[Rfam]
RNA sequence: CACUCUGGAGAGACCGCCCGCGCCGACGCAUUCGGCCGGAACCGGCGCCGAAGGGGCAAGAAGCCAGCGGGGUCUCCUCCCCCGCCCCGCGCUUUGAAACUCUCAGGCAAAAGGACAGAGGG
Numbered sequence: 001c002a003c004u005c006u007g008g009a010g011a012g013a014c015c016g017c018c019c020g021c022g023c024c025g026a027c028g029c030a031u032u033c034g035g036c037c038g039g040a041a042c043c044g045g046c047g048c049c050g051a052a053g054g055g056g057c058a059a060g061a062a063g064c065c066a067g068c069g070g071g072g073u074c075u076c077c078u079c080c081c082c083c084g085c086c087c088c089g090c091g092c093u094u095u096g097a098a099a100c101u102c103u104c105a106g107g108c109a110a111a112a113g114g115a116c117a118g119a120g121g122g
Base pairs, nucleotide, nucleotide: 001122003120004119005118006117007116014045015044016043047108048107049106050104051103054102055101056100060095061094062093063092064091
Rfam assigns this 122-nucleotide sequence from Lysobacter soli to the family "Glycine riboswitch aptamer". This family represents the bacterial glycine riboswitch. Taxonomically the source falls in Lysobacter (Bacteria, Pseudomonadota, Lysobacterales, Lysobacteraceae).